Notes
A member of the RNA family "MIR5070 microRNA precursor family" from Brachypodium distachyon, 116 nucleotides long. Gene Ontology terms of the family: RISC complex and miRNA-mediated post-transcriptional gene silencing. NCBI's taxonomy places the organism under Eukaryota, Tracheophyta, Liliopsida, Poales, Brachypodium.
RNA sequence: AUGGGUACCUUUUGACUCUCUUUAGUUCAACUAAAUGAACUAAAAAUUUAAAAUGACACAACUUUUUUAAAAACUAGUUCAUUUGUUUGAACUAAGAAGGGUCACAGGGUACCCUG
Numbered sequence: 001a002u003g004g005g006u007a008c009c010u011u012u013u014g015a016c017u018c019u020c021u022u023u024a025g026u027u028c029a030a031c032u033a034a035a036u037g038a039a040c041u042a043a044a045a046a047u048u049u050a051a052a053a054u055g056a057c058a059c060a061a062c063u064u065u066u067u068u069a070a071a072a073a074c075u076a077g078u079u080c081a082u083u084u085g086u087u088u089g090a091a092c093u094a095a096g097a098a099g100g101g102u103c104a105c106a107g108g109g110u111a112c113c114c115u116g
Stems, first nucleotide, its partner, number of pairs: 003114009013104007021096010032085011